[Rfam]
RNA sequence: AGCAGAGAAAAGCCGAAUCCAGCUCAGGUACGGGGGAACCAAUCAAAGGGGUGAAACCUGCUUUUUAGCAGGUAGGGGGCCUACAACCCUAACCCGUCAGCUAACCUCGGAGGCUGUCGAGAGGAGUACA
Numbered sequence: 001a002g003c004a005g006a007g008a009a010a011a012g013c014c015g016a017a018u019c020c021a022g023c024u025c026a027g028g029u030a031c032g033g034g035g036g037a038a039c040c041a042a043u044c045a046a047a048g049g050g051g052u053g054a055a056a057c058c059u060g061c062u063u064u065u066u067a068g069c070a071g072g073u074a075g076g077g078g079g080c081c082u083a084c085a086a087c088c089c090u091a092a093c094c095c096g097u098c099a100g101c102u103a104a105c106c107u108c109g110g111a112g113g114c115u116g117u118c119g120a121g122a123g124g125a126g127u128a129c130a
Base pairs, nucleotide, nucleotide: 011115012114013113014112019028020027031109032108033107034106035105040048049095050094051093057072058071059070060069075089076088077087
About this RNA: The record is a 130-nucleotide RNA from Anaerospora hongkongensis, which matches "c-di-AMP riboswitch aptamer (ydaO/yuaA leader)" in Rfam. About the family: This family represents a conserved RNA structure found upstream of the ydaO and yuaA genes in Bacillus subtilis and related genes in other bacteria. The source organism's lineage runs through Bacteria, Bacillati, Bacillota, Negativicutes and Anaerospora.